[Rfam]
RNA: Selenocysteine transfer RNA
RNA sequence: GGGAGUAGAUGGUUGACUGGUGUUGCCCCCGGACUUCAAAUCCGGUGGGGGGCGCGGUGCGUCCCCGGUGGGUUCGAUUCCCACAUACUCCC
Number, nucleotide and partner (000 for none) at each position: 001g092002g091003g090004a089005g088006u087007a086008g084009a000010u000011g027012g026013u025014u000015g024016a023017c022018u000019g000020g000021u000022g017023u016024u015025g013026c012027c011028c000029c045030c044031g043032g042033a041034c000035u000036u000037c000038a000039a000040a000041u033042c032043c031044g030045g029046u000047g000048g066049g065050g064051g063052g062053c000054g000055c000056g000057g000058u000059g000060c000061g000062u052063c051064c050065c049066c048067g000068g000069u083070g082071g081072g080073u000074u000075c000076g000077a000078u000079u000080c072081c071082c070083a069084c008085a000086u007087a006088c005089u004090c003091c002092c001